[Rfam]
RNA sequence: GCAACAGCUUGGCAAACUUACUGAAAAGUAAGGGCGCAAAGUCACCGGCCUAAGGGUAACUAAGGUAGCGGGACUGCGACA
Dot-bracket structure: ...........((...((((((....))))))...))..((((.((((((....(....)...)))..)))))))......
Numbered sequence: 001g002c003a004a005c006a007g008c009u010u011g012g013c014a015a016a017c018u019u020a021c022u023g024a025a026a027a028g029u030a031a032g033g034g035c036g037c038a039a040a041g042u043c044a045c046c047g048g049c050c051u052a053a054g055g056g057u058a059a060c061u062a063a064g065g066u067a068g069c070g071g072g073a074c075u076g077c078g079a080c081a
Stems, first nucleotide, its partner, number of pairs: 012037002017032006040075004045071003048066003055060001
The family of this 81-nucleotide RNA from a Gallionellaceae bacterium is "c-di-GMP-I riboswitch aptamer". Taxonomically the source falls in Gallionellaceae (Bacteria, Pseudomonadati, Betaproteobacteria, Nitrosomonadales).